[Rfam]
A member of the RNA family "Rhizobiales sRNA Atu_At1" from Pseudaminobacter salicylatoxidans, 110 nucleotides long. A reference for the family is Wilms et al. (2012), "Deep sequencing uncovers numerous small RNAs on all four replicons of the plant pathogen Agrobacterium tumefaciens", RNA Biol. Taxonomically the source falls in Pseudaminobacter (Bacteria, Alphaproteobacteria, Hyphomicrobiales, Phyllobacteriaceae).

RNA sequence: UUGCGGGCCGUGUCAACCGGGCCCGACGGUACGGUGAACAGGACAGUCUUUUUCCCGGUUUCUCUUCCUGGCCAACGAAAUGGCAGACGAGCACCUAUCCCGUCCGGCCC
Numbered sequence: 001u002u003g004c005g006g007g008c009c010g011u012g013u014c015a016a017c018c019g020g021g022c023c024c025g026a027c028g029g030u031a032c033g034g035u036g037a038a039c040a041g042g043a044c045a046g047u048c049u050u051u052u053u054c055c056c057g058g059u060u061u062c063u064c065u066u067c068c069u070g071g072c073c074a075a076c077g078a079a080a081u082g083g084c085a086g087a088c089g090a091g092c093a094c095c096u097a098u099c100c101c102g103u104c105c106g107g108c109c110c
Stems, first nucleotide, its partner, number of pairs: 006109004012022003025104003028100002033095004039070005045065002071084003